The family of this 97-nucleotide RNA sequence from Acetanaerobacterium elongatum is "NiCo (Nickel/Cobalt) riboswitch aptamer". Gene Ontology terms of the family: cobalt ion binding and metal ion homeostasis.

[Rfam]
RNA sequence: ACAGUACAAUCUGAUCAGGCCAUAAAUUGUACUAAGUUUAUGUGCCGGGCCGUGGUAUACGGCAGCAGAUGAAAUACAUUACAUCUGUGGGACAGUA
Dot-bracket structure: ..........(((..(.(((.((((((........))))))..)))..(((((.....))))).((((((............))))))..).)))..
Numbered sequence: 001a002c003a004g005u006a007c008a009a010u011c012u013g014a015u016c017a018g019g020c021c022a023u024a025a026a027u028u029g030u031a032c033u034a035a036g037u038u039u040a041u042g043u044g045c046c047g048g049g050c051c052g053u054g055g056u057a058u059a060c061g062g063c064a065g066c067a068g069a070u071g072a073a074a075u076a077c078a079u080u081a082c083a084u085c086u087g088u089g090g091g092a093c094a095g096u097a
Stems, first nucleotide, its partner, number of pairs: 011095003016091001018046003022041006049063005065088006
Taxonomically the source falls in Acetanaerobacterium (Bacteria, Clostridia, Eubacteriales, Oscillospiraceae). For this family Rfam cites "Bacterial riboswitches cooperatively bind Ni(2+) or Co(2+) ions and control expression of heavy metal transporters" (Furukawa et al., Mol Cell, 2015).